[Rfam]
RNA: Mason-Pfizer monkey virus packaging signal
RNA sequence: UGGCGCCCAAUGGUGAGGCGUGGAUAAGGGGGAAUUCGCGAGGGAAGAGGUGUUUAAUGGUUCCACCGAACAAAGCAGAAGUCAUUUCAAGAAGGAUCACCACGGGAGCCUGCCACGCCGUUCUUAAAGGUACAGUAACUCCUAACUAUGGGACAAGAAUUAAGUAAGCUUUAAGUUUUUGUUAAGCAAUUAAAAGAAGCUUUAAAGACACGGGGAGUAAAGGUUAAGAGUAAUCAUCUUUUUAAGUUUUUGACCUUAUUAAGGAUACCUGUCCGU
Dot-bracket structure: .....(((.....((.........))..)))....((.(.......).))..................................(.(........(.(..(..((.......))..)..).)...)...).....(....((((....))))...)....(((((.................................)).)))......((((.(((..((((.(.......).))))......)))))))........(.((((....)))).)
Numbered sequence: 001u002g003g004c005g006c007c008c009a010a011u012g013g014u015g016a017g018g019c020g021u022g023g024a025u026a027a028g029g030g031g032g033a034a035u036u037c038g039c040g041a042g043g044g045a046a047g048a049g050g051u052g053u054u055u056a057a058u059g060g061u062u063c064c065a066c067c068g069a070a071c072a073a074a075g076c077a078g079a080a081g082u083c084a085u086u087u088c089a090a091g092a093a094g095g096a097u098c099a100c101c102a103c104g105g106g107a108g109c110c111u112g113c114c115a116c117g118c119c120g121u122u123c124u125u126a127a128a129g130g131u132a133c134a135g136u137a138a139c140u141c142c143u144a145a146c147u148a149u150g151g152g153a154c155a156a157g158a159a160u161u162a163a164g165u166a167a168g169c170u171u172u173a174a175g176u177u178u179u180u181g182u183u184a185a186g187c188a189a190u191u192a193a194a195a196g197a198a199g200c201u202u203u204a205a206a207g208a209c210a211c212g213g214g215g216a217g218u219a220a221a222g223g224u225u226a227a228g229a230g231u232a233a234u235c236a237u238c239u240u241u242u243u244a245a246g247u248u249u250u251u252g253a254c255c256u257u258a259u260u261a262a263g264g265a266u267a268c269c270u271g272u273c274c275g276u
Stems, first nucleotide, its partner, number of pairs: 006031003014026002036050002039047001085130001087126001096122001098120001101117001104114002136156001141152004161204003164200002211252004216248003221239004226234001261276001263274004